Shown here is a 107-nucleotide RNA from Syntrophaceticus schinkii, a member of the family "SAM riboswitch aptamer (S box leader)". A search with the family's covariance model found it, with a score of 97 bits. Gene Ontology term of the family: regulation of gene expression. Taxonomically the source falls in Syntrophaceticus (Bacteria, Bacillati, Clostridia, Thermoanaerobacterales).
[Rfam]
Nucleotides: 107
Base pairs, nucleotide, nucleotide: 001107002106003105004104005103006102007101008100013041015040016039017038021031022030023029025079026078027077028076042071043070044069045068047067048066049063051061052060075099080096081095082094083093084092085091
Number, partner (000 for none) and nucleotide at each position: 001107c002106u003105c004104u005103u006102a007101u008100c009000c010000a011000g012000a013041g014000u015040g016039g017038u018000g019000g020000a021031g022030g023029g024000a025079c026078g027077g028076g029023c030022c031021c032000a033000a034000u035000g036000a037000a038017a039016c040015c041013c042071g043070g044069c045068a046000a047067c048066c049063g050000g051061u052060c053000c054000u055000a056000a057000g058000u059000a060052g061051g062000g063049c064000g065000a066048g067047g068045u069044g070043c071042c072000a073000a074000u075099u076028c077027c078026c079025g080096c081095a082094g083093a084092a085091u086000a087000a088000u089000g090000g091085a092084u093083u094082c095081u096080g097000g098000g099075a100008g101007a102006u103005a104004a105003g106002a107001g